[Rfam]
RNA: mir-52 microRNA precursor family
RNA sequence: CCGAUUCUGACAGUCCACCCGUACAUUUGUUUCCGUGCUUGACUUCAAAGCUCAAUCACGGCACAAUAUAUGGGUCGCCAGUCAUUGUAGUC
Number, nucleotide and partner (000 for none) at each position: 001c000002c000003g000004a000005u000006u000007c000008u000009g000010a000011c000012a000013g000014u000015c000016c000017a075018c074019c073020c072021g071022u070023a069024c000025a067026u066027u000028u065029g064030u063031u000032u000033c000034c060035g059036u058037g057038c000039u055040u054041g053042a052043c000044u000045u000046c000047a000048a000049a000050g000051c000052u042053c041054a040055a039056u000057c037058a036059c035060g034061g000062c000063a030064c029065a028066a026067u025068a000069u023070a022071u021072g020073g019074g018075u017076c000077g000078c000079c000080a000081g000082u000083c000084a000085u000086u000087g000088u000089a000090g000091u000092c000